[Rfam]
RNA sequence: CCGUCCAACCUCUGGAACAAAAUGUCCACCCCGGCGGGUACGCGGUUACUCUGGCCCGGUGCACCUUCCCCUGAAGGUGCAAAGCCGACAGCCGUCGCACUCCAGGGAGCACUUCCAUG
Numbered sequence: 001c002c003g004u005c006c007a008a009c010c011u012c013u014g015g016a017a018c019a020a021a022a023u024g025u026c027c028a029c030c031c032c033g034g035c036g037g038g039u040a041c042g043c044g045g046u047u048a049c050u051c052u053g054g055c056c057c058g059g060u061g062c063a064c065c066u067u068c069c070c071c072u073g074a075a076g077g078u079g080c081a082a083a084g085c086c087g088a089c090a091g092c093c094g095u096c097g098c099a100c101u102c103c104a105g106g107g108a109g110c111a112c113u114u115c116c117a118u119g
Base pairs, nucleotide, nucleotide: 060081061080062079063078065076066075067074068073084098085097087096088095089094
RNA: Streptomyces-metH RNA
Organism: Streptomyces sp. CB03234